[Rfam]
Lysine riboswitch aptamer: a 174-nucleotide RNA from Macrococcus sp. DPC7161. The match comes from Rfam's covariance-model search (106 bits).
RNA sequence: AAUUAGAGAUGAGGCGCAUCAAUCAUCAGUAGAUAAUGAGAAAGCUGCAAAUGAAUUAUUGAAAGGGUGCGAUGCCGAAAUGUAUAUAUGAUUGCAGUCAUAUAUAUGUUGGAUCCCAAGGUUAAGAGCUAUGGAUCUGUCAUUAUUGAAAAAUAAUGGAGUGCAUCGCUUGUA
Numbered sequence: 001a002a003u004u005a006g007a008g009a010u011g012a013g014g015c016g017c018a019u020c021a022a023u024c025a026u027c028a029g030u031a032g033a034u035a036a037u038g039a040g041a042a043a044g045c046u047g048c049a050a051a052u053g054a055a056u057u058a059u060u061g062a063a064a065g066g067g068u069g070c071g072a073u074g075c076c077g078a079a080a081u082g083u084a085u086a087u088a089u090g091a092u093u094g095c096a097g098u099c100a101u102a103u104a105u106a107u108g109u110u111g112g113a114u115c116c117c118a119a120g121g122u123u124a125a126g127a128g129c130u131a132u133g134g135a136u137c138u139g140u141c142a143u144u145a146u147u148g149a150a151a152a153a154u155a156a157u158g159g160a161g162u163g164c165a166u167c168g169c170u171u172g173u174a
Stems, first nucleotide, its partner, number of pairs: 006169001008167004016075005024067001032060006079110012111138006120130003140159007
Dot-bracket structure: .....(.((((....(((((...(.......((((((.................))))))......)...)))))...((((((((((((........))))))))))))((((((...(((.....)))..)))))).(((((((......)))))))....)))).).....